The record is a 123-nucleotide sequence from Oryctolagus cuniculus, which matches "U5 spliceosomal RNA" in Rfam. Pairs were carried over by alignment from the consensus structure, which is taken from published work. By type it is a spliceosomal small nuclear RNA. Taxonomically the source falls in Oryctolagus (Eukaryota, Opisthokonta, Vertebrata, Eutheria). The match comes from Rfam's covariance-model search (47 bits).

Nucleotides: 123
Stems, first nucleotide, its partner, number of pairs: 005080002009068002012065001014063001016061004028054008103123001105122003109118001
Number, partner (000 for none) and nucleotide at each position: 001000a002000u003000a004000c005080u006079c007000u008000g009068g010067u011000u012065u013000c014063u015000c016061u017060u018059c019058a020000g021000a022000u023000u024000g025000u026000g027000u028054a029053a030052a031051u032050c033049u034048u035047u036000c037000a038000c039000c040000u041000u042000u043000u044000a045000c046000u047035a048034a049033a050032g051031a052030u053029u054028u055000c056000c057000g058019u059018g060017g061016a062000a063014g064000a065012a066000u067010g068009c069000a070000u071000g072000u073000u074000u075000u076000c077000a078000u079006g080005a081000u082000g083000c084000a085000u086000c087000c088000a089000u090000a091000g092000a093000a094000a095000a096000u097000a098000c099000u100000u101000c102000a103123u104000c105122a106121g107120c108000c109118c110000u111000a112000a113000c114000u115000u116000a117000c118109g119000u120107g121106c122105u123103a